[Rfam]
RNA sequence: CUGUGCUAGACGGGGAGGUAGCGGUGCCUUGUAACCUGCAAUCCGCUAUAGCAGGGUUGAAAUCCUCUUGGAGGCUCGCACUUUGUAGGGCUGGCCUAAACAAGUGGCGAUGAGAAUUGGGUCCUACGCAACGAAAAGUCAUGAAUCCCGUCAGGUCCGGAAGGAAGCAGCGGUAAGUGAUCCCUUUCGUGUGCCGCAGGGAAGCCUAAUUUGAGUUAACUAUUUAGGUAACGCUUAUGAAGACGAGUCAAAUUGAGGUGCACGG
Dot-bracket structure: ((((((..(((((((.(.(...).).))))....(((((...........)))))))).....((((.....(((((...(((((((((....(.(((((...(((((.....((((((((((((.((((.(((((.(((((.....((((....(((....)))....))))...)))))...)))))))...)).)))...)))))))))..))).))..))))).)....)))))))))..))))).....)))).))))))
Numbered sequence: 001c002u003g004u005g006c007u008a009g010a011c012g013g014g015g016a017g018g019u020a021g022c023g024g025u026g027c028c029u030u031g032u033a034a035c036c037u038g039c040a041a042u043c044c045g046c047u048a049u050a051g052c053a054g055g056g057u058u059g060a061a062a063u064c065c066u067c068u069u070g071g072a073g074g075c076u077c078g079c080a081c082u083u084u085g086u087a088g089g090g091c092u093g094g095c096c097u098a099a100a101c102a103a104g105u106g107g108c109g110a111u112g113a114g115a116a117u118u119g120g121g122u123c124c125u126a127c128g129c130a131a132c133g134a135a136a137a138g139u140c141a142u143g144a145a146u147c148c149c150g151u152c153a154g155g156u157c158c159g160g161a162a163g164g165a166a167g168c169a170g171c172g173g174u175a176a177g178u179g180a181u182c183c184c185u186u187u188c189g190u191g192u193g194c195c196g197c198a199g200g201g202a203a204g205c206c207u208a209a210u211u212u213g214a215g216u217u218a219a220c221u222a223u224u225u226a227g228g229u230a231a232c233g234c235u236u237a238u239g240a241a242g243a244c245g246a247g248u249c250a251a252a253u254u255g256a257g258g259u260g261c262a263c264g265g
Stems, first nucleotide, its partner, number of pairs: 001265006009058003012030004017025001019023001035055005064258004073249005081242009094229001096227005104220002106217003114212009123200003127196002129191002132189005138181005148173004156165003
This 265-nucleotide sequence from Alkaliphilus sp. B6464 belongs to the Rfam family "Bacterial large signal recognition particle RNA". Taxonomically the source falls in Alkaliphilus (Bacteria, Bacillati, Bacillota, Peptostreptococcales). It scores 208 bits against the family's covariance model. The family's consensus secondary structure is taken from published work. Gene Ontology terms of the family: signal recognition particle, plasma membrane targeting and SRP-dependent cotranslational protein targeting to membrane, signal sequence recognition. A reference for the family is Rosenblad et al. (2003), "SRPDB: Signal Recognition Particle Database", Nucleic Acids Res. The family's RNA type in Rfam is non-coding RNA gene.